[Rfam]
RNA sequence: ACUAAAGAGGCACAUCUUACGGGAAAGUGCCCAAUUCGCGGUCAAAGUCUUGGGAGGAUAGGAUCUCAGGCGCGCUUUGUUCGCAGCCCCCGGGCAACCGGGAAACAGAUCACGCGACACCUGAACAACAAGGCUUUCAGCCUUGUUUUUUUUU
Numbered sequence: 001a002c003u004a005a006a007g008a009g010g011c012a013c014a015u016c017u018u019a020c021g022g023g024a025a026a027g028u029g030c031c032c033a034a035u036u037c038g039c040g041g042u043c044a045a046a047g048u049c050u051u052g053g054g055a056g057g058a059u060a061g062g063a064u065c066u067c068a069g070g071c072g073c074g075c076u077u078u079g080u081u082c083g084c085a086g087c088c089c090c091c092g093g094g095c096a097a098c099c100g101g102g103a104a105a106c107a108g109a110u111c112a113c114g115c116g117a118c119a120c121c122u123g124a125a126c127a128a129c130a131a132g133g134c135u136u137u138c139a140g141c142c143u144u145g146u147u148u149u150u151u152u153u154u
Stems, first nucleotide, its partner, number of pairs: 004153003011029003015025001037116004047059004062111005069088003072084003090101003127147008
The family of this 154-nucleotide RNA from Parahoeflea phototrophica is "Alphaproteobacterial sRNA ar9". The sequence is in the family's curated seed alignment. A reference for the family is del Val et al. (2012), "A survey of sRNA families in alpha-proteobacteria", RNA Biol. The pairing is the family consensus, mapped onto this sequence. By type it is a small RNA.